Rfam assigns this 176-nucleotide RNA sequence from Serpentinicella alkaliphila to the family "Lysine riboswitch aptamer".
RNA sequence: UUUCUAAAUAGAGGUGCAAUAUUUAAUAGUAUUUAAGUGGAGUGAAGCGACUGUGAAGCUUAAAGAAAGGAAAUGUUGCCGAAAUAUAUAGUUGAUUGCUUUAAGGCUAUAUAUUGGUUUUACUCAAAAUAUGUGUAAAACUGUCACAAUGUUAUUUGUGGGGCGCUAUUGAAUUA
Dot-bracket structure: ......(((((....(((((((((.......(((((((...................)))))))......)))))))))...(((((((((((...........)))))))))))((((((((.((.....)).)))))))).((((((......))))))....)))))......
Numbered sequence: 001u002u003u004c005u006a007a008a009u010a011g012a013g014g015u016g017c018a019a020u021a022u023u024u025a026a027u028a029g030u031a032u033u034u035a036a037g038u039g040g041a042g043u044g045a046a047g048c049g050a051c052u053g054u055g056a057a058g059c060u061u062a063a064a065g066a067a068a069g070g071a072a073a074u075g076u077u078g079c080c081g082a083a084a085u086a087u088a089u090a091g092u093u094g095a096u097u098g099c100u101u102u103a104a105g106g107c108u109a110u111a112u113a114u115u116g117g118u119u120u121u122a123c124u125c126a127a128a129a130u131a132u133g134u135g136u137a138a139a140a141c142u143g144u145c146a147c148a149a150u151g152u153u154a155u156u157u158g159u160g161g162g163g164c165g166c167u168a169u170u171g172a173a174u175u176a
Stems, first nucleotide, its partner, number of pairs: 007170005016079009032064007083115011116142008125133002144161006
Background: Taxonomically the source falls in Serpentinicella (Bacteria, Bacillota, Peptostreptococcales, Natronincolaceae). About the family: Riboswitches are metabolite binding domains within certain messenger RNAs that serve as precision sensors for their corresponding targets. The family's consensus secondary structure is taken from published work. A search with the family's covariance model found it, with a score of 113 bits.